[Rfam]
RNA: Bacterial small signal recognition particle RNA
Organism: bacterium K02(2017)
RNA sequence: CAUUGGGCCCCACGCAAAAGGAGUUUUAUGAACUCCGCCAGGCCCGGAAGGGAGCAACGGUAAUAAAAUGAUUUUGUGCCGUGGAUUUAGCCUAAUGGCC
Numbered sequence: 001c002a003u004u005g006g007g008c009c010c011c012a013c014g015c016a017a018a019a020g021g022a023g024u025u026u027u028a029u030g031a032a033c034u035c036c037g038c039c040a041g042g043c044c045c046g047g048a049a050g051g052g053a054g055c056a057a058c059g060g061u062a063a064u065a066a067a068a069u070g071a072u073u074u075u076g077u078g079c080c081g082u083g084g085a086u087u088u089a090g091c092c093u094a095a096u097g098g099c100c
Stems, first nucleotide, its partner, number of pairs: 004094005010084005015076001017075004024068006035060003043052003